[Rfam]
Notes:
This 107-nucleotide RNA sequence from Acetonema longum belongs to the Rfam family "SAM riboswitch aptamer (S box leader)". The organism belongs to Acetonema longum, within Bacteria. Rfam describes the family as follows. The SAM riboswitch is found upstream of a number of genes which code for proteins involved in methionine or cysteine biosynthesis in Gram-positive bacteria. It scores 86 bits against the family's covariance model.
RNA sequence: CUCUUAUCCAGAGUGGUCGAGGGACUGGCCCGAUGACGCCCGGCAACCGGCUCGUUAGAGCAGUGGUGCUAAUUCCAGCAGAACAGCAGUGUUUUGGGAGAUGAGAG
Numbered sequence: 001c002u003c004u005u006a007u008c009c010a011g012a013g014u015g016g017u018c019g020a021g022g023g024a025c026u027g028g029c030c031c032g033a034u035g036a037c038g039c040c041c042g043g044c045a046a047c048c049g050g051c052u053c054g055u056u057a058g059a060g061c062a063g064u065g066g067u068g069c070u071a072a073u074u075c076c077a078g079c080a081g082a083a084c085a086g087c088a089g090u091g092u093u094u095u096g097g098g099a100g101a102u103g104a105g106a107g
Base pairs, nucleotide, nucleotide: 001107002106003105004104005103006102007101008100013041015040016039017038021031022030023029025078026077027076028075042070043069044068045067047066048065050061051060052059074099079096080095081094082093083092084091